Shown here is a 154-nucleotide RNA sequence from Desulfofarcimen acetoxidans, a member of the family "glmS glucosamine-6-phosphate activated ribozyme aptamer".
The base pairs follow the family's consensus structure, which is taken from published work.
Gene Ontology terms of the family: catalytic activity and regulation of gene expression.
Rfam describes the family as follows. This entry contains a glucosamine-6-phosphate activated ribozyme that is found in the mRNA for GlmS. GlmS is an enzyme that uses fructose-6-phosphate and glutamine to generate glucosamine-6-phosphate.
By type it is a riboswitch.
RNA sequence: AAAAUUAAAGAAGCGCCUGAACCCUUGUAUGUAAAAGGGUUGACGAGGAGGGGGUUUAUCGAGAUUCGGCGGAUGCCCCCCGGUUGGUCGUGACCGAGAAAGGUAUGACAAAAGCGCCGGGUAACCGGCGUCACAAAAAUACUGGUCGACAUAG
Number, nucleotide and partner (000 for none) at each position: 001a000002a000003a000004a000005u000006u000007a000008a000009a000010g000011a000012a000013g000014c000015g000016c000017c000018u000019g000020a041021a040022c039023c038024c037025u036026u035027g000028u000029a000030u000031g000032u000033a000034a000035a026036a025037g024038g023039g022040u021041u020042g000043a000044c000045g000046a000047g000048g000049a000050g080051g079052g078053g077054g076055u000056u000057u000058a000059u069060c068061g067062a066063g000064a000065u000066u062067c061068g060069g059070c000071g000072g000073a000074u000075g000076c054077c053078c052079c051080c050081c096082g095083g094084u093085u092086g000087g000088u000089c000090g000091u000092g085093a084094c083095c082096g081097a000098g000099a000100a000101a000102g143103g142104u141105a140106u139107g000108a000109c000110a000111a000112a000113a000114g131115c130116g129117c128118c127119g126120g125121g000122u000123a000124a000125c120126c119127g118128g117129c116130g115131u114132c000133a000134c000135a000136a000137a000138a000139a106140u105141a104142c103143u102144g000145g000146u000147c000148g000149a000150c000151a000152u000153a000154g000